Source information
Small nucleolar RNA SNORD66: a 77-nucleotide RNA from Penelope pileata.

RNA sequence: CUCUUGUGAUGAUCUCUGCUUUGUGCCAUCGUGUCUGGGCCACUGAUGUUCCGUGAUGGUAGUGAGCAUCUGAGGGG
Numbered sequence: 001c002u003c004u005u006g007u008g009a010u011g012a013u014c015u016c017u018g019c020u021u022u023g024u025g026c027c028a029u030c031g032u033g034u035c036u037g038g039g040c041c042a043c044u045g046a047u048g049u050u051c052c053g054u055g056a057u058g059g060u061a062g063u064g065a066g067c068a069u070c071u072g073a074g075g076g077g
Stems, first nucleotide, its partner, number of pairs: 001077004

From the family's description: snoRNA HBII-142 is part of the C/D family of snoRNAs. It is the human orthologue of the mouse MBII-142 snoRNA and is predicted to guide 2'O-ribose methylation of small 18S rRNA at residue C1272. Pairs were carried over by alignment from the consensus structure, which was predicted with RNAalifold. Lineage of the source: Eukaryota > Bilateria > Chordata > Dinosauria > Penelope. The literature on the family includes a 2001 paper in EMBO J by Huttenhofer et al., "RNomics: an experimental approach that identifies 201 candidates for novel, small, non-messenger RNAs in mouse". Rfam 15.1 lists 1,346 matches to the family in 614 species.